Rfam assigns this 403-nucleotide RNA sequence from Candidatus Synechococcus spongiarum to the family "Bacterial RNase P class A". Pairs were carried over by alignment from the consensus structure, which is taken from published work. Lineage of the source: Bacteria > Bacillati > Cyanophyceae > Synechococcaceae > Candidatus Synechococcus spongiarum. It is annotated as a ribozyme.

RNA sequence: AAAGGAGGCGAGGCGACCGCGGCACGACCGAGUCCGCUCGGUGCGUGCUGAGGAAAGUCCGGGCUCCCCCAUGGCCAGGCCUGCUGGGUAACGCCCAGUGCGGGUGACCGUGAGGAUAGUGCCACAGAAAUACACCGCCGAUGGCCGCGGCUUUUGCCCAGGCACAGGUAAGGGUGCAAAGGUGCGGUAAGAGCGCACCAGCAGCAUCGAGAGGUGCUGGCUCGGUAAACCCCAGCCGGGAGCAAGGCAAAGAACAAAGGUUGGCCAUGUGCCCGUUCUGCUUAGACAUGCCGCUUGAGGCCUGUGGUAACACAGGUCCUAGACAGAUGGUCGCCCCUGGAGAGGGAGCCAUUCCAUGGAGAUCUCCCCAGGAACAGAACCCGGCUUAUGUCCUGCUUUCCAC
Numbered sequence: 001a002a003a004g005g006a007g008g009c010g011a012g013g014c015g016a017c018c019g020c021g022g023c024a025c026g027a028c029c030g031a032g033u034c035c036g037c038u039c040g041g042u043g044c045g046u047g048c049u050g051a052g053g054a055a056a057g058u059c060c061g062g063g064c065u066c067c068c069c070c071a072u073g074g075c076c077a078g079g080c081c082u083g084c085u086g087g088g089u090a091a092c093g094c095c096c097a098g099u100g101c102g103g104g105u106g107a108c109c110g111u112g113a114g115g116a117u118a119g120u121g122c123c124a125c126a127g128a129a130a131u132a133c134a135c136c137g138c139c140g141a142u143g144g145c146c147g148c149g150g151c152u153u154u155u156g157c158c159c160a161g162g163c164a165c166a167g168g169u170a171a172g173g174g175u176g177c178a179a180a181g182g183u184g185c186g187g188u189a190a191g192a193g194c195g196c197a198c199c200a201g202c203a204g205c206a207u208c209g210a211g212a213g214g215u216g217c218u219g220g221c222u223c224g225g226u227a228a229a230c231c232c233c234a235g236c237c238g239g240g241a242g243c244a245a246g247g248c249a250a251a252g253a254a255c256a257a258a259g260g261u262u263g264g265c266c267a268u269g270u271g272c273c274c275g276u277u278c279u280g281c282u283u284a285g286a287c288a289u290g291c292c293g294c295u296u297g298a299g300g301c302c303u304g305u306g307g308u309a310a311c312a313c314a315g316g317u318c319c320u321a322g323a324c325a326g327a328u329g330g331u332c333g334c335c336c337c338u339g340g341a342g343a344g345g346g347a348g349c350c351a352u353u354c355c356a357u358g359g360a361g362a363u364c365u366c367c368c369c370a371g372g373a374a375c376a377g378a379a380c381c382c383g384g385c386u387u388a389u390g391u392c393c394u395g396c397u398u399u400c401c402a403c
Base pairs, nucleotide, nucleotide: 001399002398003397004396006394007393008392011389012335013334014333015332016331017330018329020050021049022048023047024046025045026044055387056386057385059384060383061382062381063380064242065241066240067239073274074273076271078237079236080235082234083233084098085097086096087095088094099113100111101110102109103108114232115231119230120229121226122225123224135173136172137169138168139167142164143163145161181199182198183197184196185195186194201221202219203218204217205216206215207214208213246292247291248290249289256283257282299318300317301316302315303314304313305312306311